[Rfam]
Background:
Small nucleolar RNA SNORD58: a 67-nucleotide RNA from Crypturellus undulatus. The family's RNA type in Rfam is C/D-box small nucleolar RNA. For this family Rfam cites "Purified box C/D snoRNPs are able to reproduce site-specific 2'-O-methylation of target RNA in vitro" (Galardi et al., Mol Cell Biol, 2002). The match comes from Rfam's covariance-model search (78 bits). About the family: snoRNA U58 is found in introns 1, 3 and 6 of the ribosomal protein RPL17 gene in humans. Rfam 15.1 lists 2,484 matches to the family in 680 species. Gene Ontology terms of the family: nucleolus and RNA processing. Its Rfam clan is "SNORD58 clan". The source organism's lineage runs through Eukaryota, Teleostomi, Palaeognathae, Tinamiformes and Crypturellus.

RNA sequence: UUGCUGUGAUGACUUUCUUAGGACAUCUUUGGAUUAAACAUGAAAAGAAUUUUGUUUUCUGAGCAAU
Numbered sequence: 001u002u003g004c005u006g007u008g009a010u011g012a013c014u015u016u017c018u019u020a021g022g023a024c025a026u027c028u029u030u031g032g033a034u035u036a037a038a039c040a041u042g043a044a045a046a047g048a049a050u051u052u053u054g055u056u057u058u059c060u061g062a063g064c065a066a067u
Base pairs, nucleotide, nucleotide: 001066002065003064004063